[Rfam]
RNA sequence: UCUACAUUCAAAAAAAGCACUCGUAUAAAUGUGAGAAUAAGGCUCACGCGUUUCUACCAAACAACCGUAAAUUGUUUGACUACGAGUGAAGGAUCUCUUAAU
Numbered sequence: 001u002c003u004a005c006a007u008u009c010a011a012a013a014a015a016a017g018c019a020c021u022c023g024u025a026u027a028a029a030u031g032u033g034a035g036a037a038u039a040a041g042g043c044u045c046a047c048g049c050g051u052u053u054c055u056a057c058c059a060a061a062c063a064a065c066c067g068u069a070a071a072u073u074g075u076u077u078g079a080c081u082a083c084g085a086g087u088g089a090a091g092g093a094u095c096u097c098u099u100a101a102u
Stems, first nucleotide, its partner, number of pairs: 018088008030048006058078007

This 102-nucleotide sequence from Texcoconibacillus texcoconensis belongs to the Rfam family "Purine riboswitch aptamer".